[Rfam]
Nucleotides: 149
Base pairs, nucleotide, nucleotide: 003147004146005145006144007143008142009141010140017029018028019027031129032128033119034118035067036066037065038064062117063116072093099115100114101113102112103111121132122131123130
Number, partner (000 for none) and nucleotide at each position: 001000a002000u003147c004146u005145a006144u007143c008142u009141u010140c011000g012000g013000g014000g015000c016000a017029g018028g019027g020000u021000g022000a023000a024000a025000u026000u027019c028018c029017c030000g031129a032128c033119c034118g035067g036066c037065g038064g039000u040000a041000a042000u043000a044000a045000g046000c047000g048000c049000g050000a051000u052000g053000a054000c055000g056000c057000u058000u059000u060000g061000a062117g063116c064038c065037c066036g067035c068000g069000a070000g071000c072093c073000g074000u075000a076000c077000c078000u079000c080000g081000c082000u083000a084000a085000a086000a087000g088000g089000u090000a091000u092000a093072g094000c095000a096000g097000g098000a099115u100114u101113u102112g103111g104000u105000g106000a107000g108000a109000u110000u111103c112102c113101a114100a115099a116063g117062c118034c119033g120000a121132c122131a123130g124000u125000a126000c127000a128032g129031u130123c131122u132121g133000g134000a135000u136000g137000g138000g139000a140010g141009a142008a143007g144006g145005u146004g147003g148000a149000g
Background
The record is a 149-nucleotide sequence from Priestia koreensis, which matches "FMN riboswitch aptamer (RFN element)" in Rfam. A search with the family's covariance model found it, with a score of 120 bits. The organism belongs to Priestia, within Bacteria.